[Rfam]
RNA sequence: AACCAGUGAUGAGACACAACUAAAUAACUUUUCUGACACCUCAUAUGAGGGCUGGCAACAGCCCCUGAUUCUAACUCUACUCUGAGGCUC
Numbered sequence: 001a002a003c004c005a006g007u008g009a010u011g012a013g014a015c016a017c018a019a020c021u022a023a024a025u026a027a028c029u030u031u032u033c034u035g036a037c038a039c040c041u042c043a044u045a046u047g048a049g050g051g052c053u054g055g056c057a058a059c060a061g062c063c064c065c066u067g068a069u070u071c072u073a074a075c076u077c078u079a080c081u082c083u084g085a086g087g088c089u090c
Base pairs, nucleotide, nucleotide: 001089003087004086051062052061053060054059

Shown here is a 90-nucleotide sequence from Esox lucius, a member of the family "Small nucleolar RNA SNORD60". The source organism's lineage runs through Eukaryota, Teleostomi, Neopterygii, Esociformes and Esox. The match comes from Rfam's covariance-model search (48 bits). Rfam links the family to the GO terms RNA processing and nucleolus. The family's RNA type in Rfam is C/D-box small nucleolar RNA.